[Rfam]
RNA sequence: AUCCAAUGAGGAAGACAUCCCAAAAAAUUGAUAGGAAGUGCCGUAUGACACUUUAAACAGCCAGGGGUUU
Numbered sequence: 001a002u003c004c005a006a007u008g009a010g011g012a013a014g015a016c017a018u019c020c021c022a023a024a025a026a027a028u029u030g031a032u033a034g035g036a037a038g039u040g041c042c043g044u045a046u047g048a049c050a051c052u053u054u055a056a057a058c059a060g061c062c063a064g065g066g067g068u069u070u
Base pairs, nucleotide, nucleotide: 035054036053037052038051039050040049
Annotation:
Rfam assigns this 70-nucleotide RNA sequence from Ziziphus jujuba to the family "Small nucleolar RNA U49". Clan: SNORD49 clan. The match comes from Rfam's covariance-model search (56 bits). The family's RNA type in Rfam is C/D-box small nucleolar RNA.